Rfam assigns this 166-nucleotide RNA from Medicago truncatula to the family "MIR2619 microRNA precursor family". It scores 146 bits against the family's covariance model.
[Rfam]
RNA sequence: AAACAGCCCCCUAUGUUUUGAUUCUUUGAUAAUUUUGGACCCCCAAGGCAAAUUUAUUUUUUUUGACAUGUGACACCUCACUUAGGGUGCCACGUCAGCGUUGACCGAGUCAACAAUGGACCGGGGAUCCAAAACUGCCAAAGAAUCAAAACAUAGAAGGUUGUUU
Dot-bracket structure: ((.(((((...(((((((((((((((((.((.(((((((.((((.......................((.((.((((........)))).)).))...........................)))).))))))).)).)))))))))))))))))...))))).))